[Rfam]
The family of this 75-nucleotide RNA from Vanilla planifolia is "Plastid-ycf2 5UTR RNA". For this family Rfam cites "Retrograde signaling in plants: A critical review focusing on the GUN pathway and beyond" (Richter et al., Plant Commun, 2023). Rfam's curators write: Plastid ycf2 is a non-coding RNA (ncRNA) recognised in plastids. It was found in the prime untranslated region (5UTR) of ycf2 genes, it presents a tRNA-like motif which suggests it can be involved in mRNA maturation, particularly involved in defining the precise 5' end of the transcript.
RNA sequence: AUGCAUCAAGUAAGAAUUGAAUAUACAAGUUUGUCAAUUAUGAGUUGAGCACUUUAACCAUUCAGUCAUGGAUGC
Numbered sequence: 001a002u003g004c005a006u007c008a009a010g011u012a013a014g015a016a017u018u019g020a021a022u023a024u025a026c027a028a029g030u031u032u033g034u035c036a037a038u039u040a041u042g043a044g045u046u047g048a049g050c051a052c053u054u055u056a057a058c059c060a061u062u063c064a065g066u067c068a069u070g071g072a073u074g075c
Stems, first nucleotide, its partner, number of pairs: 003075005010026003014022001040069003044066006